[Rfam]
RNA sequence: ACCCCAUGAUAUUAAGCCGGCAGGUGCCUGCAAUCCCCACGGGCAUCUGUGACUUUGAUUGGGAACAGUGACGCCGCCGAUGUGUGUAUGUUGGGCAGCGCUUUUCUCCGCGCGCUCGACAAAGAAAUUUCGGACGACA
Numbered sequence: 001a002c003c004c005c006a007u008g009a010u011a012u013u014a015a016g017c018c019g020g021c022a023g024g025u026g027c028c029u030g031c032a033a034u035c036c037c038c039a040c041g042g043g044c045a046u047c048u049g050u051g052a053c054u055u056u057g058a059u060u061g062g063g064a065a066c067a068g069u070g071a072c073g074c075c076g077c078c079g080a081u082g083u084g085u086g087u088a089u090g091u092u093g094g095g096c097a098g099c100g101c102u103u104u105u106c107u108c109c110g111c112g113c114g115c116u117c118g119a120c121a122a123a124g125a126a127a128u129u130u131c132g133g134a135c136g137a138c139a
Stems, first nucleotide, its partner, number of pairs: 020050008077133004089121007098113004
RNA: Small nucleolar RNA snoR639/H1
Organism: Drosophila rhopaloa